Rfam assigns this 149-nucleotide sequence from Clostridium bornimense to the family "glmS glucosamine-6-phosphate activated ribozyme aptamer". The family's RNA type in Rfam is riboswitch. Lineage of the source: Bacteria > Bacillati > Bacillota > Clostridia > Clostridium. Pairs were carried over by alignment from the consensus structure, which is taken from published work. From the family's description: This entry contains a glucosamine-6-phosphate activated ribozyme that is found in the mRNA for GlmS. GlmS is an enzyme that uses fructose-6-phosphate and glutamine to generate glucosamine-6-phosphate. The ribozyme catalyses self cleavage of the glmS mRNA that is thought to regulate GlmS activity. A search with the family's covariance model found it, with a score of 107 bits.
RNA sequence: AAGUAUAUAAUAGCGCCAGAACUUAUUUGUAAGUUGACGAGGAUGGGGAGUAUCGAAUAUUCGGCGGAUGUCCCACGGUAUCACACUACCGAAAAAGAUUGGCAAAACUAGAAAGUGAUUUUUAGAACAAAUUCAAUCGGGUGUGUCCU
Numbered sequence: 001a002a003g004u005a006u007a008u009a010a011u012a013g014c015g016c017c018a019g020a021a022c023u024u025a026u027u028u029g030u031a032a033g034u035u036g037a038c039g040a041g042g043a044u045g046g047g048g049a050g051u052a053u054c055g056a057a058u059a060u061u062c063g064g065c066g067g068a069u070g071u072c073c074c075a076c077g078g079u080a081u082c083a084c085a086c087u088a089c090c091g092a093a094a095a096a097g098a099u100u101g102g103c104a105a106a107a108c109u110a111g112a113a114a115g116u117g118a119u120u121u122u123u124a125g126a127a128c129a130a131a132u133u134c135a136a137u138c139g140g141g142u143g144u145g146u147c148c149u
Stems, first nucleotide, its partner, number of pairs: 020035006044075005053064004076091005097138005108125007